RNA sequence: ACGGAAGCCCGGUGAGGCCAAGACCCAGUCGGAAGAGAAGGCUGGAUCUCCCGAACCAGGCUACCCAGCACGGAUCCCGGCACCCACGCGGAGCACAUGCCGCGAAAUAGGCAAAAGUGUUGCGGGCCUGCGUAACAGCGAAGAGCGGCCGACCACGACGACCCCUUGGGUGGGGUUGCAGGCGAAGCGCAUCGCCAGGACGCCGAGGCCAACCCACGCAGCCAUACCGAGCACGCUUGGUAACCGGUCUCCGUGCUAGCGGGCGGCGAGCCGAACUCAGUUCGGAGCGUCGCCCGCUUCAUUUU
Numbered sequence: 001a002c003g004g005a006a007g008c009c010c011g012g013u014g015a016g017g018c019c020a021a022g023a024c025c026c027a028g029u030c031g032g033a034a035g036a037g038a039a040g041g042c043u044g045g046a047u048c049u050c051c052c053g054a055a056c057c058a059g060g061c062u063a064c065c066c067a068g069c070a071c072g073g074a075u076c077c078c079g080g081c082a083c084c085c086a087c088g089c090g091g092a093g094c095a096c097a098u099g100c101c102g103c104g105a106a107a108u109a110g111g112c113a114a115a116a117g118u119g120u121u122g123c124g125g126g127c128c129u130g131c132g133u134a135a136c137a138g139c140g141a142a143g144a145g146c147g148g149c150c151g152a153c154c155a156c157g158a159c160g161a162c163c164c165c166u167u168g169g170g171u172g173g174g175g176u177u178g179c180a181g182g183c184g185a186a187g188c189g190c191a192u193c194g195c196c197a198g199g200a201c202g203c204c205g206a207g208g209c210c211a212a213c214c215c216a217c218g219c220a221g222c223c224a225u226a227c228c229g230a231g232c233a234c235g236c237u238u239g240g241u242a243a244c245c246g247g248u249c250u251c252c253g254u255g256c257u258a259g260c261g262g263g264c265g266g267c268g269a270g271c272c273g274a275a276c277u278c279a280g281u282u283c284g285g286a287g288c289g290u291c292g293c294c295c296g297c298u299u300c301a302u303u304u305u
Base pairs, nucleotide, nucleotide: 003065004064006062007061008060009059011057012056016052017051021049022048025045026044027043028042029041030040067257068256069255070254071253072252073251074250077247078246079245080244084240085239086238088236089235090234093232094231098113099112100111101110119222120221121220122219123218124217125210126209127208128207129206130203131202132201133200138195139194140193141192145190146189147188150184151183153181159178160177161176162175163174164173165172259297260296261295262294263293264292265291266290267289268288271285272284273283
The family of this 305-nucleotide RNA from Mycobacterium manitobense is "Mycobacterium smegmatis small RNA 1".
From the family's description: Mycobacterium smegmatis small RNA 1 is highly expressed during stationary phase of growth. Ms1 RNA directly interacts with RNA polymerase (RNAP), but in a different way than 6S, which is present in other bacteria.
The base pairs follow the family's consensus structure, which was predicted with CMfinder.